[Rfam]
RNA sequence: GCGGAUGGCCGGAUGACCGCGUGGGUGCGUGCACUCGCGAGGAAAGUCCGGACUCCACAAGGCAUCGGUGCCGGGUAACGCCCGGCGGGGGAAACCCCAGGGAAAGCGCCACAGAGAACAGACCGCCCGCCCUGCGGCGGGUAAGGGUGAAACGGUGGGGUAAGAGCCCACCGGGGGGCUGGUAACAGACCCCGCAUGGCAAGCCCCACCGGGAGCAAUGCCGAAUAGGGACCUUGUGCCCCGGCAACGGGGCAGGGCGGCCUUGCCUGAAAGGUCCGGGUUGGCAGCUAGAUCCCGUCAGCAAUGGCGGGCCCAGAGGAAUGGUCAUCCAGAGGGGGCAACCCCUUGGACAAAAUCCGGCUUACAGGCCAUCCGCGCGC
Dot-bracket structure: ((((((((((((((((((.((((((((....))))))))....[[[.[[[[[((((...[[[[..((((((((((.....)))))(((((....)))).)((...(((((............(((((((((....)))))))..)).......((((((.......))))))(((((.(((....))).)))).)..)))..)))))))))))))...((((......((((((....................((((.]]]].))))...)))))).....)))).......(((((((....)))))))...........)))))))..........................]]]]]]]].).))))))))))....
Shown here is a 380-nucleotide sequence from Paracoccus tegillarcae, a member of the family "Bacterial RNase P class A". The source organism's lineage runs through Bacteria, Pseudomonadati, Alphaproteobacteria, Paracoccaceae and Paracoccus. A search with the family's covariance model found it, with a score of 298 bits. Rfam links the family to the GO terms ribonuclease P activity, tRNA processing and dimeric ribonuclease P complex.